A member of the RNA family "mir-9242 microRNA precursor family" from Myotis lucifugus, 64 nucleotides long.
Rfam 15.1 lists 940 matches to the family in 18 species.
It scores 63 bits against the family's covariance model.
Pairs were carried over by alignment from the consensus structure, which was predicted with RNAalifold.
[Rfam]
RNA sequence: GGCCUCCCUUUGCAGGGCGAUCAAUCGCGGGGCCCCCAGAUCGAUCGCCCCACAGAGGGAGGCC
Dot-bracket structure: ((((((((((((..((((((((.(((..((....))..))).))))))))..))))))))))))
Numbered sequence: 001g002g003c004c005u006c007c008c009u010u011u012g013c014a015g016g017g018c019g020a021u022c023a024a025u026c027g028c029g030g031g032g033c034c035c036c037c038a039g040a041u042c043g044a045u046c047g048c049c050c051c052a053c054a055g056a057g058g059g060a061g062g063c064c
Stems, first nucleotide, its partner, number of pairs: 001064012015050008024041003029036002